[Rfam]
RNA: TPP riboswitch aptamer (THI element)
Organism: Reyranella soli
RNA sequence: CGACAUCUGCCGGGGUGCCCGCACACGCGGGCUGAGAUCACACCCGUUGAACCUGCCUGGGUCAUGCCAGCGAAGGGAGUGUUCGAUGUCCAGGA
Number, nucleotide and partner (000 for none) at each position: 001c000002g000003a000004c000005a000006u000007c000008u081009g080010c079011c046012g045013g044014g043015g000016u040017g032018c031019c030020c029021g028022c000023a000024c000025a000026c000027g000028c021029g020030g019031g018032c017033u000034g000035a000036g000037a000038u000039c000040a016041c000042a000043c014044c013045c012046g011047u000048u000049g000050a000051a000052c076053c075054u074055g000056c000057c070058u069059g068060g067061g000062u000063c000064a000065u000066g000067c060068c059069a058070g057071c000072g000073a000074a054075g053076g052077g000078a000079g010080u009081g008082u000083u000084c000085g000086a000087u000088g000089u000090c000091c000092a000093g000094g000095a000